[Rfam]
RNA sequence: CCCGGUCUGACGCUCCCUCCGACAUGCCGGGGCAGGAGCGGGGGACCCAUGGUUCCGCCGGGCAAGGCCGGUUGACCGGCCGAGCCCUUGGGGUGAAGUCGCCGUCCCGAGGCGACCGGGCUACGUGAACCCAGCCCGAACCCGACAGCUGACCUCGCAGGCGUCAGGGAAGGACGA
Numbered sequence: 001c002c003c004g005g006u007c008u009g010a011c012g013c014u015c016c017c018u019c020c021g022a023c024a025u026g027c028c029g030g031g032g033c034a035g036g037a038g039c040g041g042g043g044g045a046c047c048c049a050u051g052g053u054u055c056c057g058c059c060g061g062g063c064a065a066g067g068c069c070g071g072u073u074g075a076c077c078g079g080c081c082g083a084g085c086c087c088u089u090g091g092g093g094u095g096a097a098g099u100c101g102c103c104g105u106c107c108c109g110a111g112g113c114g115a116c117c118g119g120g121c122u123a124c125g126u127g128a129a130c131c132c133a134g135c136c137c138g139a140a141c142c143c144g145a146c147a148g149c150u151g152a153c154c155u156c157g158c159a160g161g162c163g164u165c166a167g168g169g170a171a172g173g174a175c176g177a
Stems, first nucleotide, its partner, number of pairs: 001036002038158006048090002091143003099115004118137004
Rfam assigns this 177-nucleotide RNA from Pseudofrankia inefficax to the family "c-di-AMP riboswitch aptamer (ydaO/yuaA leader)".
About the family: This family represents a conserved RNA structure found upstream of the ydaO and yuaA genes in Bacillus subtilis and related genes in other bacteria.
The source organism's lineage runs through Bacteria, Bacillati, Frankiales, Frankiaceae and Pseudofrankia.